[Rfam]
RNA sequence: ACAUGAAGCUGGGGGAGUGAAGUUCAUUCACUGAGAGUCCUCGACGGACGACCCUUGGAACCUGAUCCGGAUCAUGCCGGCGUAGGGAAGCGACCAGAACCAGAC
Numbered sequence: 001a002c003a004u005g006a007a008g009c010u011g012g013g014g015g016a017g018u019g020a021a022g023u024u025c026a027u028u029c030a031c032u033g034a035g036a037g038u039c040c041u042c043g044a045c046g047g048a049c050g051a052c053c054c055u056u057g058g059a060a061c062c063u064g065a066u067c068c069g070g071a072u073c074a075u076g077c078c079g080g081c082g083u084a085g086g087g088a089a090g091c092g093a094c095c096a097g098a099a100c101c102a103g104a105c
Stems, first nucleotide, its partner, number of pairs: 008091003011055004017031005038048003061086004067080004
The family of this 105-nucleotide RNA from Desulfuromonas thiophila is "TPP riboswitch aptamer (THI element)".
Vitamin B(1) in its active form thiamin pyrophosphate (TPP) is an essential coenzyme that is synthesised by coupling of pyrimidine and thiazole moieties in bacteria.
Lineage of the source: Bacteria > Pseudomonadati > Desulfuromonadia > Desulfuromonadaceae > Desulfuromonas.
A search with the family's covariance model found it, with a score of 72 bits.